[Rfam]
RNA sequence: CCGCCCGUCGCUACUACCGAUUGAAUGUUUUAGUGAGGUCUUCGGACUGGCCGGCGCAGCUCUCUCGUAGUGCAGCGCUGUGUUUGGAAAGAUGCCCAAACUUGAACAUUUAGAGGAAGUAAAAGUCGUAACAAGGUUUCCGUAGGUGAACCUGCGGAAGGAUCAUUA
Numbered sequence: 001c002c003g004c005c006c007g008u009c010g011c012u013a014c015u016a017c018c019g020a021u022u023g024a025a026u027g028u029u030u031u032a033g034u035g036a037g038g039u040c041u042u043c044g045g046a047c048u049g050g051c052c053g054g055c056g057c058a059g060c061u062c063u064c065u066c067g068u069a070g071u072g073c074a075g076c077g078c079u080g081u082g083u084u085u086g087g088a089a090a091g092a093u094g095c096c097c098a099a100a101c102u103u104g105a106a107c108a109u110u111u112a113g114a115g116g117a118a119g120u121a122a123a124a125g126u127c128g129u130a131a132c133a134a135g136g137u138u139u140c141c142g143u144a145g146g147u148g149a150a151c152c153u154g155c156g157g158a159a160g161g162a163u164c165a166u167u168a
Stems, first nucleotide, its partner, number of pairs: 001135001003132001006128002009125001012121004017116002021112001023111008032102003037097002040094001042092002047087004052080006059073002062070001137160010
Shown here is a 168-nucleotide part of an RNA from Oppiella nova, a member of the family "Eukaryotic small subunit ribosomal RNA". The literature on the family includes a 2001 paper in Science by Yusupov et al., "Crystal structure of the ribosome at 5.5 A resolution". It scores 1758 bits against the family's covariance model. The family is grouped with related families in Rfam's "SSU clan". The family's consensus secondary structure is taken from published work.